[Rfam]
Nucleotides: 117
Base pairs, nucleotide, nucleotide: 016032017031018030019029020028078117079116080115081114082113089112090111092109093108095106096105098103
Number, partner (000 for none) and nucleotide at each position: 001000c002000g003000c004000g005000u006000a007000u008000u009000u010000u011000g012000c013000c014000c015000a016032g017031g018030c019029g020028g021000a022000g023000c024000u025000c026000g027000a028020c029019c030018g031017c032016c033000g034000c035000g036000g037000g038000a039000a040000g041000u042000g043000a044000u045000g046000g047000u048000g049000a050000g051000g052000u053000c054000c055000a056000u057000c058000g059000a060000c061000g062000a063000u064000c065000a066000u067000c068000g069000c070000c071000a072000g073000g074000a075000g076000u077000a078117c079116g080115g081114a082113g083000u084000c085000g086000a087000g088000c089112c090111g091000a092109u093108c094000u095106g096105c097000c098103g099000g100000g101000u102000g103098c104000u105096g106095c107000c108093g109092a110000u111090u112089g113082c114081u115080c116079c117078g